[Rfam]
RNA sequence: AACUGAAAAUGGCAAGCUUGCCGAAAGGCAUUGCACGCAAAGCUAUGGGCCUAAGGCUGUUGCUAUGGUUGCCAGGUUGCCGAU
Dot-bracket structure: ...........((...(.((((....))))..)...))..((((.((((((....((....))...)))..)))))))......